[Rfam]
RNA: UnaL2 LINE 3' element
Organism: Hucho hucho
RNA sequence: UGCACACAUGACUGGAAGUCGCUUUGAAUAAAAGUGUCUGCUAAAUGGCACUGA
Number, nucleotide and partner (000 for none) at each position: 001u000002g000003c000004a000005c000006a000007c000008a000009u000010g000011a000012c000013u043014g041015g000016a039017a000018g000019u000020c036021g035022c034023u033024u032025u031026g000027a000028a000029u000030a000031a025032a024033a023034g022035u021036g020037u000038c000039u016040g000041c014042u000043a013044a000045a000046u000047g000048g000049c000050a000051c000052u000053g000054a000